[Rfam]
RNA sequence: GGGUGUGUAGCUCAGUUGGUUAGAGCGUUACACUGAUAAUGUAAAGGUCGGAAGUUCAAUUCUUCCCACACCCA
Numbered sequence: 001g002g003g004u005g006u007g008u009a010g011c012u013c014a015g016u017u018g019g020u021u022a023g024a025g026c027g028u029u030a031c032a033c034u035g036a037u038a039a040u041g042u043a044a045a046g047g048u049c050g051g052a053a054g055u056u057c058a059a060u061u062c063u064u065c066c067c068a069c070a071c072c073c074a
Stems, first nucleotide, its partner, number of pairs: 001073007010026004028044005050066005
The family of this 74-nucleotide RNA sequence from a Spirochaetota bacterium is "tRNA". Rfam classes the family as a transfer RNA. Rfam's curators write: Transfer RNA (tRNA) molecules are approximately 80 nucleotides in length.